RNA: Manganese Mn2+ riboswitch aptamer (yybP-ykoY)
Organism: Marinomonas aquimarina
Nucleotides: 175
Stems, first nucleotide, its partner, number of pairs: 017032003033074010050064005075174005081168001
Number, partner (000 for none) and nucleotide at each position: 001000c002000u003000u004000a005000a006000g007000g008000g009000a010000g011000u012000a013000a014000u015000c016000u017032u018031c019030u020000u021000c022000u023000u024000u025000g026000a027000c028000g029000a030019a031018g032017a033074u034073c035072c036071u037070u038069u039068g040067u041066c042065a043000a044000c045000a046000u047000a048000a049000u050064u051063g052062a053061g054060c055000c056000u057000c058000a059000c060054g061053c062052u063051c064050a065042u066041g067040g068039c069038a070037a071036a072035g073034g074033a075174g076173u077172c078171c079170a080000u081168u082000g083000u084000u085000a086000c087000c088000a089000a090000c091000u092000c093000u094000g095000g096000a097000u098000u099000g100000a101000u102000g103000a104000g105000a106000c107000u108000u109000a110000a111000g112000a113000c114000g115000u116000a117000c118000g119000c120000u121000u122000g123000u124000c125000u126000c127000a128000g129000g130000u131000g132000g133000g134000c135000a136000c137000a138000g139000g140000c141000c142000g143000u144000u145000c146000g147000u148000c149000u150000u151000a152000u153000g154000u155000u156000u157000a158000a159000u160000c161000g162000c163000c164000c165000a166000c167000c168081g169000u170079u171078g172077g173076a174075u175000u